[Rfam]
RNA: Small nucleolar RNA U49
Organism: Juglans regia
RNA sequence: UCCCGAUGAGGAAGAAUUCCCGAAAUUGAUAGGAAGUGCCGUAUGACACUUUAAUCAGCACACAGCUUG
Numbered sequence: 001u002c003c004c005g006a007u008g009a010g011g012a013a014g015a016a017u018u019c020c021c022g023a024a025a026u027u028g029a030u031a032g033g034a035a036g037u038g039c040c041g042u043a044u045g046a047c048a049c050u051u052u053a054a055u056c057a058g059c060a061c062a063c064a065g066c067u068u069g
Base pairs, nucleotide, nucleotide: 014063033052034051035050036049037048038047